About this RNA: The family of this 73-nucleotide RNA from Labeo rohita is "mir-1905 microRNA precursor family".
RNA sequence: GCGUCUGCUGCUGGAUGCGUUUGAUCGUGGCUCCUUUGGGUCCCACCACUAGCCCCACCACGCGGUAGGGAAC
Numbered sequence: 001g002c003g004u005c006u007g008c009u010g011c012u013g014g015a016u017g018c019g020u021u022u023g024a025u026c027g028u029g030g031c032u033c034c035u036u037u038g039g040g041u042c043c044c045a046c047c048a049c050u051a052g053c054c055c056c057a058c059c060a061c062g063c064g065g066u067a068g069g070g071a072a073c
Base pairs, nucleotide, nucleotide: 004069005068006067007066008065009064010063011062012060013059014058017055019053020052021051023049025048027046028045030043033040034039

It scores 89 bits against the family's covariance model.
Its family is annotated with miRNA-mediated post-transcriptional gene silencing and RISC complex in the Gene Ontology.